[Rfam]
RNA sequence: GAAGUUGAUAGAGGUUGCGAUAUUUAAGAGUAGAUUUACGGAGGUAAGCACAAAGAUGUAAAUUGAAAGGAAAUUUCGCCGAAACAUAUAGUUGAUGCUUUGAAACUGUAGUGUUGGGGUUAUGUAAAAUAUACAUAAAACUGUCACAAAUUAAUUUGUGAAGAGCUAUUACUUAA
Numbered sequence: 001g002a003a004g005u006u007g008a009u010a011g012a013g014g015u016u017g018c019g020a021u022a023u024u025u026a027a028g029a030g031u032a033g034a035u036u037u038a039c040g041g042a043g044g045u046a047a048g049c050a051c052a053a054a055g056a057u058g059u060a061a062a063u064u065g066a067a068a069g070g071a072a073a074u075u076u077c078g079c080c081g082a083a084a085c086a087u088a089u090a091g092u093u094g095a096u097g098c099u100u101u102g103a104a105a106c107u108g109u110a111g112u113g114u115u116g117g118g119g120u121u122a123u124g125u126a127a128a129a130u131a132u133a134c135a136u137a138a139a140a141c142u143g144u145c146a147c148a149a150a151u152u153a154a155u156u157u158g159u160g161a162a163g164a165g166c167u168a169u170u171a172c173u174u175a176a
Base pairs, nucleotide, nucleotide: 006171007170008169009168010167011166017079018078019077020076022074023073024072025071033064034063035062036061037060038059039058040057083115084114085113086112087110088109089108090107091106092105093104116142117141120138121137122136123135124134125133126132144161145160146159147158148157149156150155